This 74-nucleotide sequence from Laodelphax striatellus belongs to the Rfam family "mir-252 microRNA precursor family". A reference for the family is Li et al. (2009), "Direct sequencing and expression analysis of a large number of miRNAs in Aedes aegypti and a multi-species survey of novel mosquito miRNAs", BMC Genomics. It scores 50 bits against the family's covariance model. Clan: mir-252 microRNA precursor family.

RNA sequence: CCUAUGCUUUAAGUAGUAGUGCCGUAGCGAAUUUUUUUCUGUUUAUCGCUACUCACUCCUGCUUUAUGCAUGGG
Number, nucleotide and partner (000 for none) at each position: 001c074002c073003u072004a071005u070006g069007c068008u000009u000010u000011a064012a063013g062014u061015a060016g059017u000018a057019g056020u000021g000022c000023c000024g052025u051026a050027g049028c048029g047030a046031a000032u000033u000034u000035u000036u000037u000038u000039c000040u000041g000042u000043u000044u000045a000046u030047c029048g028049c027050u026051a025052c024053u000054c000055a000056c019057u018058c000059c016060u015061g014062c013063u012064u011065u000066a000067u000068g007069c006070a005071u004072g003073g002074g001

NCBI's taxonomy places the organism under Eukaryota, Eumetazoa, Mandibulata, Allotriocarida, Laodelphax.